[Rfam]
RNA sequence: ACGGAAGCCAGGCAAGGCCAAGGUCGAGCCGGAAGAGAAGGCUCGAACUCCCGAGUUUGGCUACCCAGCACGGAACCCGGCACCCACGCGGAGCAUAAGCCGCGAUAAUGGCAAAAGUGUUGCGGGCCUGCGUAAUUGUGAAAAGCGGACUACGAGGACAACCCUUUGGGUGGGGUUGCACGUACAGCGCAUUGCAAACACGCCGAGGUCAUCCCACGCAACCCACCAGGCACGCUUGGUAACCGAGAUCCGUGCUAGCGGGCGGCGAGCCGAAGCAUUUUCGGAACGCCGCCCGCUUCAUUUU
Numbered sequence: 001a002c003g004g005a006a007g008c009c010a011g012g013c014a015a016g017g018c019c020a021a022g023g024u025c026g027a028g029c030c031g032g033a034a035g036a037g038a039a040g041g042c043u044c045g046a047a048c049u050c051c052c053g054a055g056u057u058u059g060g061c062u063a064c065c066c067a068g069c070a071c072g073g074a075a076c077c078c079g080g081c082a083c084c085c086a087c088g089c090g091g092a093g094c095a096u097a098a099g100c101c102g103c104g105a106u107a108a109u110g111g112c113a114a115a116a117g118u119g120u121u122g123c124g125g126g127c128c129u130g131c132g133u134a135a136u137u138g139u140g141a142a143a144a145g146c147g148g149a150c151u152a153c154g155a156g157g158a159c160a161a162c163c164c165u166u167u168g169g170g171u172g173g174g175g176u177u178g179c180a181c182g183u184a185c186a187g188c189g190c191a192u193u194g195c196a197a198a199c200a201c202g203c204c205g206a207g208g209u210c211a212u213c214c215c216a217c218g219c220a221a222c223c224c225a226c227c228a229g230g231c232a233c234g235c236u237u238g239g240u241a242a243c244c245g246a247g248a249u250c251c252g253u254g255c256u257a258g259c260g261g262g263c264g265g266c267g268a269g270c271c272g273a274a275g276c277a278u279u280u281u282c283g284g285a286a287c288g289c290c291g292c293c294c295g296c297u298u299c300a301u302u303u304u
Stems, first nucleotide, its partner, number of pairs: 003065002006062007016052002021049002025045006067256008078245003084239003088235003093231002099112003119222006125210005130203004136197006145190003151184004159178007258296010270284003
RNA: Mycobacterium smegmatis small RNA 1